[Rfam]
RNA sequence: GGCGUAAAGCGAGCGUAGGUGGUUUAUUAAGUCAGAUGUGAAAUCCCUGGGCUUAACCUAGGAACUGCAUCUGAUACUGAUAAACUAGAGUAGGUGAGAGGAAAGUAGAAUUCCAGGUGUAGCGGUGAAAUGCGUAGAGAUCUGGAGGAAUACCGAUGGCGAAGGCAGCUUUCUGGCAUCAUACUGACACUGAGGUUCGAAAGCGUGGGUAGCAAACAGGAUUAGAUACCCUGGUAGUCCACGCCGUAAACGAUGUCUACCAGUCGUUGGGUCUUUUAAAGGCUUAGUGACGCAGUUAACGCGAUAAGUAGACCGCCUGGGGAGUACGGCCGCAAGGUUAAAACUCAAAUGAAU
Numbered sequence: 001g002g003c004g005u006a007a008a009g010c011g012a013g014c015g016u017a018g019g020u021g022g023u024u025u026a027u028u029a030a031g032u033c034a035g036a037u038g039u040g041a042a043a044u045c046c047c048u049g050g051g052c053u054u055a056a057c058c059u060a061g062g063a064a065c066u067g068c069a070u071c072u073g074a075u076a077c078u079g080a081u082a083a084a085c086u087a088g089a090g091u092a093g094g095u096g097a098g099a100g101g102a103a104a105g106u107a108g109a110a111u112u113c114c115a116g117g118u119g120u121a122g123c124g125g126u127g128a129a130a131u132g133c134g135u136a137g138a139g140a141u142c143u144g145g146a147g148g149a150a151u152a153c154c155g156a157u158g159g160c161g162a163a164g165g166c167a168g169c170u171u172u173c174u175g176g177c178a179u180c181a182u183a184c185u186g187a188c189a190c191u192g193a194g195g196u197u198c199g200a201a202a203g204c205g206u207g208g209g210u211a212g213c214a215a216a217c218a219g220g221a222u223u224a225g226a227u228a229c230c231c232u233g234g235u236a237g238u239c240c241a242c243g244c245c246g247u248a249a250a251c252g253a254u255g256u257c258u259a260c261c262a263g264u265c266g267u268u269g270g271g272u273c274u275u276u277u278a279a280a281g282g283c284u285u286a287g288u289g290a291c292g293c294a295g296u297u298a299a300c301g302c303g304a305u306a307a308g309u310a311g312a313c314c315g316c317c318u319g320g321g322g323a324g325u326a327c328g329g330c331c332g333c334a335a336g337g338u339u340a341a342a343a344c345u346c347a348a349a350u351g352a353a354u
Stems, first nucleotide, its partner, number of pairs: 001317003009314001011198004016192001018191003022085007030078002032074009046062006089185003093180004100174007107151001111147008122133003159166002203244006212238002217233004255313006263291012295302002319346003328339004

This 354-nucleotide part of an RNA from Lwoffella lincolnii belongs to the Rfam family "Bacterial small subunit ribosomal RNA".
Its Rfam clan is "SSU clan".
Its family is annotated with structural constituent of ribosome and ribosome in the Gene Ontology.
Rfam 15.1 lists 42,628 matches to the family in 10,626 species.
Pairs were carried over by alignment from the consensus structure, which is taken from published work.